A member of the RNA family "L4-Archaeoglobi ribosomal protein leades" from Halovenus carboxidivorans, 99 nucleotides long.
The match comes from Rfam's covariance-model search (62 bits).
The family's RNA type in Rfam is cis-regulatory leader.
Pairs were carried over by alignment from the consensus structure, which is taken from published work.
Taxonomically the source falls in Halovenus (Archaea, Methanobacteriati, Halobacteria, Halobacteriales).
[Rfam]
RNA sequence: CAGAUGGGCGCGUCCGGGUCAAUUGCGGACUGCAACACCCGAUCUCUCUCCUCGUCCCAGACGGGAUGGAUCUCACGGAGGGAGAGCGCGUCACCAUCG
Numbered sequence: 001c002a003g004a005u006g007g008g009c010g011c012g013u014c015c016g017g018g019u020c021a022a023u024u025g026c027g028g029a030c031u032g033c034a035a036c037a038c039c040c041g042a043u044c045u046c047u048c049u050c051c052u053c054g055u056c057c058c059a060g061a062c063g064g065g066a067u068g069g070a071u072c073u074c075a076c077g078g079a080g081g082g083a084g085a086g087c088g089c090g091u092c093a094c095c096a097u098c099g
Stems, first nucleotide, its partner, number of pairs: 003098003008091006015041004023035005043085009